[Rfam]
RNA sequence: AAGCAUGCUAUCCUAAGGAUCUGAGCUCUUGUAGCUUCUGGUUCUCCAAAUGCGUGCGAGAUGAUUGGGUGGUCUUUGACUGCUGAGGUCACUGUACCACCAGCAGCCACUCAGCUGCCCUACAGUU
Numbered sequence: 001a002a003g004c005a006u007g008c009u010a011u012c013c014u015a016a017g018g019a020u021c022u023g024a025g026c027u028c029u030u031g032u033a034g035c036u037u038c039u040g041g042u043u044c045u046c047c048a049a050a051u052g053c054g055u056g057c058g059a060g061a062u063g064a065u066u067g068g069g070u071g072g073u074c075u076u077u078g079a080c081u082g083c084u085g086a087g088g089u090c091a092c093u094g095u096a097c098c099a100c101c102a103g104c105a106g107c108c109a110c111u112c113a114g115c116u117g118c119c120c121u122a123c124a125g126u127u
Stems, first nucleotide, its partner, number of pairs: 014040002019036001021034003067120006082107002085100001087098002